[Rfam]
RNA sequence: AAGCGUCUGGUAGCGAAAAGCCAGGGGCGGUAGCGUG
Numbered sequence: 001a002a003g004c005g006u007c008u009g010g011u012a013g014c015g016a017a018a019a020g021c022c023a024g025g026g027g028c029g030g031u032a033g034c035g036u037g
Base pairs, nucleotide, nucleotide: 007024008023009022010021011020
The family of this 37-nucleotide RNA sequence from Paramixta manurensis is "JUMPstart RNA". A search with the family's covariance model found it, with a score of 39 bits.